Rfam assigns this 155-nucleotide RNA from Dankookia rubra to the family "6S / SsrS RNA". About the family: E. coli 6S RNA was the first non coding RNA to be sequenced, but its function was unknown until recently. It consists of 184 nucleotides that fold into an extended hairpin structure with a large single-stranded internal bulge. The source organism's lineage runs through Bacteria, Pseudomonadota, Alphaproteobacteria, Roseomonadaceae and Dankookia. The family's RNA type in Rfam is non-coding RNA gene.
[Rfam]
RNA sequence: GCGGGGCUGCCCGGUGCGUCAGGCAAUUCAUCCCCAGGGCCAAUAAGCAUCCUCCGGGAGCUGGCUCUGUCCGGAUCUUGGUCCGGGUAUCUGGUGCCCACCUGCAUUAGCAGGCCUUGGGAGGAUGAUAGGCCAACGGCCAUGGUGGCUCCGCA
Numbered sequence: 001g002c003g004g005g006g007c008u009g010c011c012c013g014g015u016g017c018g019u020c021a022g023g024c025a026a027u028u029c030a031u032c033c034c035c036a037g038g039g040c041c042a043a044u045a046a047g048c049a050u051c052c053u054c055c056g057g058g059a060g061c062u063g064g065c066u067c068u069g070u071c072c073g074g075a076u077c078u079u080g081g082u083c084c085g086g087g088u089a090u091c092u093g094g095u096g097c098c099c100a101c102c103u104g105c106a107u108u109a110g111c112a113g114g115c116c117u118u119g120g121g122a123g124g125a126u127g128a129u130a131g132g133c134c135a136a137c138g139g140c141c142a143u144g145g146u147g148g149c150u151c152c153g154c155a
Stems, first nucleotide, its partner, number of pairs: 002153010013141003017138003031122004036117003040114002056099003060095005069088007